Rfam assigns this 95-nucleotide sequence from Medicago truncatula to the family "MIR5274 microRNA precursor family".
Nucleotides: 095
Stems, first nucleotide, its partner, number of pairs: 001094006009086025035060006043052002
Number, partner (000 for none) and nucleotide at each position: 001094g002093c003092g004091u005090u006089c007000c008000g009086c010085a011084a012083u013082a014081u015080g016079a017078c018077g019076g020075a021074g022073u023072g024071u025070a026069a027068a028067u029066g030065c031064c032063u033062a034000a035060g036059u037058a038057u039056c040055a041000g042000a043052c044051u045000u046000a047000c048000c049000a050000u051044a052043g053000c054000u055040u056039g057038a058037u059036a060035c061000a062033u063032a064031g065030g066029c067028a068027u069026u070025u071024a072023c073022a074021c075020u076019c077018c078017g079016u080015c081014a082013u083012a084011u085010u086009g087000u088000a089006g090005a091004a092003c093002g094001c095000a
Pairs were carried over by alignment from the consensus structure, which was predicted with RNAalifold.